[Rfam]
RNA: Small nucleolar RNA SNORD59
RNA sequence: CCUCAUUGAGAGAACGUUCUGACAUUCGUUCUUCUGAGUUUGCUGAAGCCAGAUGCCAUUUUUGAGAAGG
Numbered sequence: 001c002c003u004c005a006u007u008g009a010g011a012g013a014a015c016g017u018u019c020u021g022a023c024a025u026u027c028g029u030u031c032u033u034c035u036g037a038g039u040u041u042g043c044u045g046a047a048g049c050c051a052g053a054u055g056c057c058a059u060u061u062u063u064g065a066g067a068a069g070g
Stems, first nucleotide, its partner, number of pairs: 001070003004066001
Dot-bracket structure: ((((.............................................................).)))